[Rfam]
Nucleotides: 061
Base pairs, nucleotide, nucleotide: 001059002058003057005055006054007053010050012048013047014046015045017043019041020040021039022038
Number, partner (000 for none) and nucleotide at each position: 001059u002058c003057u004000u005055c006054a007053u008000u009000u010050c011000a012048c013047a014046u015045a016000c017043u018000c019041u020040c021039u022038c023000a024000c025000c026000a027000g028000u029000c030000a031000g032000a033000g034000u035000g036000g037000c038022g039021a040020g041019a042000g043017a044000a045015u046014g047013u048012g049000u050010g051000a052000a053007a054006u055005g056000c057003a058002g059001a060000g061000a